[Rfam]
RNA: Vault RNA
RNA sequence: GGACUGGCUUUAGCUCAGCGGGGCAAUGCUUUCUAUGGUGGAAAACAACCAUUCUGCGUGAUUCGAGACCCGCGGGCACUCUCUGGCCCUUAA
Numbered sequence: 001g002g003a004c005u006g007g008c009u010u011u012a013g014c015u016c017a018g019c020g021g022g023g024c025a026a027u028g029c030u031u032u033c034u035a036u037g038g039u040g041g042a043a044a045a046c047a048a049c050c051a052u053u054c055u056g057c058g059u060g061a062u063u064c065g066a067g068a069c070c071c072g073c074g075g076g077c078a079c080u081c082u083c084u085g086g087c088c089c090u091u092a093a
Stems, first nucleotide, its partner, number of pairs: 002088001004086004013077004018073004030067003